[Rfam]
RNA sequence: AUUACCAUCUUACUGGGCAGCAUUGGAUGUUUUCUGUCUUUCUAAUACUGCCUGGUAAUGAUGAUUAU
Numbered sequence: 001a002u003u004a005c006c007a008u009c010u011u012a013c014u015g016g017g018c019a020g021c022a023u024u025g026g027a028u029g030u031u032u033u034c035u036g037u038c039u040u041u042c043u044a045a046u047a048c049u050g051c052c053u054g055g056u057a058a059u060g061a062u063g064a065u066u067a068u
Stems, first nucleotide, its partner, number of pairs: 002067001004065001006063004010058011022046006

Annotation
The family of this 68-nucleotide RNA from Columba livia is "mir-8/mir-141/mir-200 microRNA precursor family". It scores 72 bits against the family's covariance model. Rfam 15.1 lists 2,669 matches to the family in 883 species. On this family, see Lagos-Quintana et al., Science 2001: "Identification of novel genes coding for small expressed RNAs".